This 78-nucleotide sequence from Brenthis ino belongs to the Rfam family "mir-2756 microRNA precursor family".

RNA sequence: CCGGCUGCGGACCCUGUAGCUGCUAAGGGGCGAAGUGUGCUUACCUCCCCUGAGCUGCUACAUCGUCUGUUGUUGUCC
Dot-bracket structure: .((((.((((((..((((((.(((.(((((.(.((.....))..).))))).))).))))))..)))))).))))...

The family has 2 seed sequences and 31 matches in Rfam 15.1.